[Rfam]
RNA sequence: GAGUCUAACAUGUGCGCGAGUCUUAGGGUGAUUGAAACCCCGAGGCGCAAUGAAAGUGAAGGCGGCUCCGGCCGCUGAGGUGAGAUCCGGCAGGCUUCGGCCUGCCGGCGCAUCAUCGACCGACCUAUUCUACUCUUAGGAAGGUUUGAGUAAGAGCGUGUCUGUUGGGACCCGAAAGAUGGUGAACUAUGCCUGAAUAGGGUGAAGCCAGAGGAAACUCUGGUGGAAGCUCGUAGCGAUUCUGACGUGCAAAUCGAUCGUCAAAUUUGGGUAUAGGGGCGAAAGACUAAUCGAACUGUCUAGUAGCUGGUU
Numbered sequence: 001g002a003g004u005c006u007a008a009c010a011u012g013u014g015c016g017c018g019a020g021u022c023u024u025a026g027g028g029u030g031a032u033u034g035a036a037a038c039c040c041c042g043a044g045g046c047g048c049a050a051u052g053a054a055a056g057u058g059a060a061g062g063c064g065g066c067u068c069c070g071g072c073c074g075c076u077g078a079g080g081u082g083a084g085a086u087c088c089g090g091c092a093g094g095c096u097u098c099g100g101c102c103u104g105c106c107g108g109c110g111c112a113u114c115a116u117c118g119a120c121c122g123a124c125c126u127a128u129u130c131u132a133c134u135c136u137u138a139g140g141a142a143g144g145u146u147u148g149a150g151u152a153a154g155a156g157c158g159u160g161u162c163u164g165u166u167g168g169g170a171c172c173c174g175a176a177a178g179a180u181g182g183u184g185a186a187c188u189a190u191g192c193c194u195g196a197a198u199a200g201g202g203u204g205a206a207g208c209c210a211g212a213g214g215a216a217a218c219u220c221u222g223g224u225g226g227a228a229g230c231u232c233g234u235a236g237c238g239a240u241u242c243u244g245a246c247g248u249g250c251a252a253a254u255c256g257a258u259c260g261u262c263a264a265a266u267u268u269g270g271g272u273a274u275a276g277g278g279g280c281g282a283a284a285g286a287c288u289a290a291u292c293g294a295a296c297u298g299u300c301u302a303g304u305a306g307c308u309g310g311u312u
Stems, first nucleotide, its partner, number of pairs: 005168006012161006020046003026040004050057002079117005087108007119151002121148003124144003131138002171310002174307001178300006187276011198264001200232004207224007236261004241257002244255002278288002
The family of this 312-nucleotide part of an RNA from Desmophyllum pertusum is "Eukaryotic large subunit ribosomal RNA".
The match comes from Rfam's covariance-model search (3305 bits).
The organism belongs to Desmophyllum, within Eukaryota.
The family is grouped with related families in Rfam's "LSU clan".